[Rfam]
Nucleotides: 086
Stems, first nucleotide, its partner, number of pairs: 012037002017032006040080004047076002049072003056066004
Number, partner (000 for none) and nucleotide at each position: 001000a002000u003000c004000c005000g006000a007000c008000a009000a010000a011000g012037g013036c014000a015000a016000a017032a018031c019030u020029g021028g022027u023000g024000a025000a026000a027022g028021c029020c030019a031018g032017u033000g034000a035000c036013g037012c038000a039000a040080a041079g042078c043077u044000a045000c046000a047076g048075g049072g050071g051070c052000u053000a054000c055000a056066g057065u058064c059063u060000u061000u062000a063059g064058g065057a066056c067000c068000a069000u070051g071050c072049c073000a074000g075048c076047c077043a078042g079041u080040u081000g082000c083000c084000g085000g086000u
Record summary:
c-di-GMP-I riboswitch aptamer: an 86-nucleotide RNA from Paenibacillus mucilaginosus. The match comes from Rfam's covariance-model search (77 bits). The source organism's lineage runs through Bacteria, Bacillota, Caryophanales, Paenibacillus and Paenibacillus mucilaginosus. The family's consensus secondary structure is taken from published work.